Description: Shown here is a 47-nucleotide RNA from Citrus x clementina, a member of the family "Plastid-ycf3 group II-D1 intron". Plastid rpl16 is a non-coding RNA (ncRNA) recognised in plastids. It was recognised in and intronic region of a ribosome rpl16 gene. NCBI's taxonomy places the organism under Eukaryota, Streptophytina, eudicotyledons, Gunneridae, Citrus.
RNA sequence: AUUCAUUAUGUCGUGUAUCCCCAAUUAAUGCAGCCUUUGAUGCUUCA
Numbered sequence: 001a002u003u004c005a006u007u008a009u010g011u012c013g014u015g016u017a018u019c020c021c022c023a024a025u026u027a028a029u030g031c032a033g034c035c036u037u038u039g040a041u042g043c044u045u046c047a
Stems, first nucleotide, its partner, number of pairs: 010025002013022001032044003